RNA sequence: UAUUUAAUUAAUUCUACUAGUAGUUAUAUACUUAUUUUAAAGAUUAAACUAUAUAUAUUUAAAUUUAAGUAAUUAAACUGUAAAAUUGCAAAUAGCUUAUUAAAUUAGUUAUAGUUUAUUUAAUAGUACUUUAUUAUAUAAAUAACUAUAGUAAUUCUAGAACUAAUAUAUAUUAAAAACCCUAAUUUCGGAAGGGGUAUAUUUAUUAAAUUAAAAACUAAUACCCUUCGGGGCUAAUUAGUAAUUUAUAAUAACUUUUCGAAUUAUAUAGCCUUACGCUAGCGAUGGUUUAUUUAAAUUUCUACCCUAUUAAUUUUCAACGGCUGGGUUUUGGCUAACUAUAGUAAUAAUAGGUAACGGAGGGUUAGGGCUCGACCCCGGAGAAGGAGUUUAAAAAACGGCUACUAUAUUUAAGGAAGGUAGUAGGCGUGUAAAUUACCUAAUUCCAAUACAGGGAGGUAGUAAUAAUAAAUACUAAUAUAGGGCUUUUUUGAGUUUUAUAAUUAGAAUAAAUAUAAUUUAAAUUCCUUAAUGAGGAAUAAUUGGAAGGUAAGUUUAGUAUUAGUAAUUGCGGUAAUUUUAGCUCUAAUAGUGUAUAUU
Numbered sequence: 001u002a003u004u005u006a007a008u009u010a011a012u013u014c015u016a017c018u019a020g021u022a023g024u025u026a027u028a029u030a031c032u033u034a035u036u037u038u039a040a041a042g043a044u045u046a047a048a049c050u051a052u053a054u055a056u057a058u059u060u061a062a063a064u065u066u067a068a069g070u071a072a073u074u075a076a077a078c079u080g081u082a083a084a085a086u087u088g089c090a091a092a093u094a095g096c097u098u099a100u101u102a103a104a105u106u107a108g109u110u111a112u113a114g115u116u117u118a119u120u121u122a123a124u125a126g127u128a129c130u131u132u133a134u135u136a137u138a139u140a141a142a143u144a145a146c147u148a149u150a151g152u153a154a155u156u157c158u159a160g161a162a163c164u165a166a167u168a169u170a171u172a173u174u175a176a177a178a179a180c181c182c183u184a185a186u187u188u189c190g191g192a193a194g195g196g197g198u199a200u201a202u203u204u205a206u207u208a209a210a211u212u213a214a215a216a217a218c219u220a221a222u223a224c225c226c227u228u229c230g231g232g233g234c235u236a237a238u239u240a241g242u243a244a245u246u247u248a249u250a251a252u253a254a255c256u257u258u259u260c261g262a263a264u265u266a267u268a269u270a271g272c273c274u275u276a277c278g279c280u281a282g283c284g285a286u287g288g289u290u291u292a293u294u295u296a297a298a299u300u301u302c303u304a305c306c307c308u309a310u311u312a313a314u315u316u317u318c319a320a321c322g323g324c325u326g327g328g329u330u331u332u333g334g335c336u337a338a339c340u341a342u343a344g345u346a347a348u349a350a351u352a353g354g355u356a357a358c359g360g361a362g363g364g365u366u367a368g369g370g371c372u373c374g375a376c377c378c379c380g381g382a383g384a385a386g387g388a389g390u391u392u393a394a395a396a397a398a399c400g401g402c403u404a405c406u407a408u409a410u411u412u413a414a415g416g417a418a419g420g421u422a423g424u425a426g427g428c429g430u431g432u433a434a435a436u437u438a439c440c441u442a443a444u445u446c447c448a449a450u451a452c453a454g455g456g457a458g459g460u461a462g463u464a465a466u467a468a469u470a471a472a473u474a475c476u477a478a479u480a481u482a483g484g485g486c487u488u489u490u491u492u493g494a495g496u497u498u499u500a501u502a503a504u505u506a507g508a509a510u511a512a513a514u515a516u517a518a519u520u521u522a523a524a525u526u527c528c529u530u531a532a533u534g535a536g537g538a539a540u541a542a543u544u545g546g547a548a549g550g551u552a553a554g555u556u557u558a559g560u561a562u563u564a565g566u567a568a569u570u571g572c573g574g575u576a577a578u579u580u581u582a583g584c585u586c587u588a589a590u591a592g593u594g595u596a597u598a599u600u
Base pairs, nucleotide, nucleotide: 004020005019006018008016022600023599024598026597027596028595029594030593031592032591035470037468038467039466041463042430049427050426052425053424054423058088062087063086064085069081070080096383097382098381106304107303108302111299112298115297116296121292122291123290137172138171139170140169147161149159150158151157179198180197181196182195183194186191203254204253205252206251207250208249217242218241219240220239224233225232226231264285265284267282269281270280271279272278306354307353308352313345314344315343320342322340323339325337326336327335358380359379360378362373363372364371365370385406386405388403389402390401408419410417411416436461438460439459440458444456445455446454476506477505478504479502480501481500482499483498484497485496486495487494488493513533514532515530517529543589544588545587546586547585556583557582558581559580565572566571
Shown here is a 600-nucleotide part of an RNA from Neurospora crassa, a member of the family "Eukaryotic small subunit ribosomal RNA". Its family is annotated with ribosome and structural constituent of ribosome in the Gene Ontology. NCBI's taxonomy places the organism under Eukaryota, Dikarya, Sordariomycetidae, Sordariales, Neurospora crassa. On this family, see Yusupov et al., Science 2001: "Crystal structure of the ribosome at 5.5 A resolution". It is one of the family's seed sequences.